[Rfam]
Nucleotides: 325
Base pairs, nucleotide, nucleotide: 001321002320003319004318005317006316007315008314009313010293011292012291013290014289015288016287018029019028034311035310036309038308039307040306041305042304043198044197045196046195050230051229052228053227055194056193057192058191059190060074061073062072063071064070075089076087077086078085079084090189091188095187096186097183098182099181112129113128114125115124116123117122137155138154139153140152141151142150157178158177159176160175161174162173163172164171165170202250203249204248211242212241213240214239221235222234223233224232225231257276258275259274260273261272262271263270264269
Number, partner (000 for none) and nucleotide at each position: 001321g002320g003319u004318a005317u006316u007315u008314a009313a010293g011292u012291u013290a014289a015288u016287c017000g018029c019028u020000u021000g022000a023000a024000a025000u026000a027000u028019a029018g030000a031000g032000g033000a034311a035310a036309g037000u038308c039307c040306g041305a042304a043198c044197u045196u046195c047000a048000u049000a050230g051229a052228g053227c054000a055194a056193a057192a058191a059190g060074g061073c062072a063071u064070c065000u066000a067000a068000c069000g070064g071063a072062u073061g074060c075089u076087a077086g078085g079084a080000g081000u082000a083000a084079u085078c086077c087076u088000a089075a090189g091188g092000a093000a094000a095187g096186u097183g098182c099181c100000a101000c102000a103000g104000a105000a106000a107000a108000c109000a110000a111000a112129c113128c114125g115124c116123a117122g118000g119000g120000a121000a122117c123116u124115g125114u126000a127000a128113g129112g130000g131000u132000g133000a134000a135000a136000c137155a138154g139153u140152g141151a142150g143000g144000u145000a146000a147000g148000a149000g150142c151141u152140c153139a154138c155137u156000a157178u158177g159176a160175g161174u162173u163172u164171a165170g166000g167000g168000g169000a170165c171164u172163a173162a174161a175160u176159u177158c178157a179000u180000c181099g182098g183097u184000a185000a186096a187095c188091c189090c190059c191058u192057u193056u194055u195046g196045a197044a198043g199000c200000a201000a202250g203249a204248a205000a206000a207000g208000u209000u210000a211242a212241a213240g214239a215000u216000a217000a218000a219000a220000a221235g222234u223233u224232g225231u226000u227053g228052c229051u230050c231225g232224c233223a234222a235221u236000a237000u238000c239214u240213u241212u242211u243000g244000g245000g246000u247000a248204u249203u250202c251000g252000c253000u254000u255000g256000a257276a258275u259274a260273u261272a262271u263270a264269u265000g266000c267000a268000a269264a270263u271262a272261u273260a274259u275258a276257u277000c278000u279000a280000g281000a282000u283000a284000a285000a286000u287016g288015a289014u290013u291012a292011a293010c294000a295000u296000a297000a298000a299000c300000a301000a302000a303000a304042u305041u306040c307039g308038g309036c310035u311034u312000a313009u314008u315007a316006a317005a318004u319003a320002c321001c322000g323000g324000g325000u